RNA sequence: AGGUCAGCGAAAACACAGGCGUUUUGUUUACAUGGGUCACUGCGUCUGCACCUGUGCUGUCCGAGA
Numbered sequence: 001a002g003g004u005c006a007g008c009g010a011a012a013a014c015a016c017a018g019g020c021g022u023u024u025u026g027u028u029u030a031c032a033u034g035g036g037u038c039a040c041u042g043c044g045u046c047u048g049c050a051c052c053u054g055u056g057c058u059g060u061c062c063g064a065g066a
Stems, first nucleotide, its partner, number of pairs: 002062002005059005016048007025039002
Shown here is a 66-nucleotide RNA sequence from Trypanosoma congolense, a member of the family "Trypanosomatid snoRNA TB6Cs1H1". By type it is an H/ACA-box small nucleolar RNA.